[Rfam]
RNA sequence: UAAGCCAGCGAGAACCAUGUGAAUCACUACACUACGUGAUUCAAAUGGUUCUCACAA
Numbered sequence: 001u002a003a004g005c006c007a008g009c010g011a012g013a014a015c016c017a018u019g020u021g022a023a024u025c026a027c028u029a030c031a032c033u034a035c036g037u038g039a040u041u042c043a044a045a046u047g048g049u050u051c052u053c054a055c056a057a
Base pairs, nucleotide, nucleotide: 008055010053011052012051013050014049015048016047017046018045020043021042022041023040024039025038026037
This 57-nucleotide RNA sequence from Sideroxylon wightianum belongs to the Rfam family "Plastid-ccsA-ndhD-1 3UTR RNA". Plastid-ccsA-ndhD-1 is a non-coding RNA (ncRNA) recognised in plastids. It was found in the three prime untranslated region (3UTR) of ccsA and ndhD genes, its 3UTR location suggests a role in transcript maturation. It is one of the family's seed sequences.